[Rfam]
RNA sequence: UUAUGAAGGAAGUAUGGUAAUGUGCACAUAAAUUGAAUUGGAUCUUUAGACGUGCUCUCUCUUAUGUCAUUUGGCUUUGAUUUGGGGGCAUGGUUAUGUUACAAAACA
Numbered sequence: 001u002u003a004u005g006a007a008g009g010a011a012g013u014a015u016g017g018u019a020a021u022g023u024g025c026a027c028a029u030a031a032a033u034u035g036a037a038u039u040g041g042a043u044c045u046u047u048a049g050a051c052g053u054g055c056u057c058u059c060u061c062u063u064a065u066g067u068c069a070u071u072u073g074g075c076u077u078u079g080a081u082u083u084g085g086g087g088g089c090a091u092g093g094u095u096a097u098g099u100u101a102c103a104a105a106a107c108a
Stems, first nucleotide, its partner, number of pairs: 012025004040091001043088002050081001054075003

A member of the RNA family "Small nucleolar RNA snoR100" from Rhododendron williamsianum, 108 nucleotides long. By type it is an H/ACA-box small nucleolar RNA. On this family, see Marker et al., Curr Biol 2002: "Experimental RNomics: identification of 140 candidates for small non-messenger RNAs in the plant Arabidopsis thaliana".